[Rfam]
RNA sequence: UCAGUCGCCAGUGCGAGGCCCAUUCUCUCUCAAUGGGUAUUGGGUGCAACCCCCCCGUCCAUCUCGAACGUCAUCGAGACCA
Numbered sequence: 001u002c003a004g005u006c007g008c009c010a011g012u013g014c015g016a017g018g019c020c021c022a023u024u025c026u027c028u029c030u031c032a033a034u035g036g037g038u039a040u041u042g043g044g045u046g047c048a049a050c051c052c053c054c055c056c057g058u059c060c061a062u063c064u065c066g067a068a069c070g071u072c073a074u075c076g077a078g079a080c081c082a
Stems, first nucleotide, its partner, number of pairs: 004072001005016004011047001018038007042054003056070003063078005